[Rfam]
RNA sequence: GUAUAUUAUGCGGGGAGCUGAAGCUAUUCGGCUGAGAAAGAACUUGGUUCUGACCCACAGACCUGAUCUGGGUAAUGCCAGCGUAGGGACAAGCUAGAUCGUGCUU
Numbered sequence: 001g002u003a004u005a006u007u008a009u010g011c012g013g014g015g016a017g018c019u020g021a022a023g024c025u026a027u028u029c030g031g032c033u034g035a036g037a038a039a040g041a042a043c044u045u046g047g048u049u050c051u052g053a054c055c056c057a058c059a060g061a062c063c064u065g066a067u068c069u070g071g072g073u074a075a076u077g078c079c080a081g082c083g084u085a086g087g088g089a090c091a092a093g094c095u096a097g098a099u100c101g102u103g104c105u106u
Stems, first nucleotide, its partner, number of pairs: 007093001009091002012056003017032005039051005062087004068081004